[Rfam]
RNA sequence: GUUGAAGCCCCAUCUACAAAUGGAUAAGACUUCGGUCUUAGUGUAUACGAGUCGUUGAAGUUCACGGAGCAAUACCCGAUUUCUUGUUCUAUCAAGAGAGUUGGUAUUGCUCCUUUAUU
Numbered sequence: 001g002u003u004g005a006a007g008c009c010c011c012a013u014c015u016a017c018a019a020a021u022g023g024a025u026a027a028g029a030c031u032u033c034g035g036u037c038u039u040a041g042u043g044u045a046u047a048c049g050a051g052u053c054g055u056u057g058a059a060g061u062u063c064a065c066g067g068a069g070c071a072a073u074a075c076c077c078g079a080u081u082u083c084u085u086g087u088u089c090u091a092u093c094a095a096g097a098g099a100g101u102u103g104g105u106a107u108u109g110c111u112c113c114u115u116u117a118u119u
Base pairs, nucleotide, nucleotide: 010023011022012021013020064115066113067112068111069110070109071108072107073106074105075104078101081098082097083096084095085094